The record is a 67-nucleotide RNA from Psychrobacillus soli, which matches "Bacillaceae-1 RNA" in Rfam.
[Rfam]
RNA sequence: GAAAAAGGAAGGCAUCCUAAGUACGCCACAUCCUGUGGCAACGGAUGCAUGACCCGCAUCGUGCGGG
Dot-bracket structure: ...........((((((.......(((((.....)))))...))))))....(((((.....)))))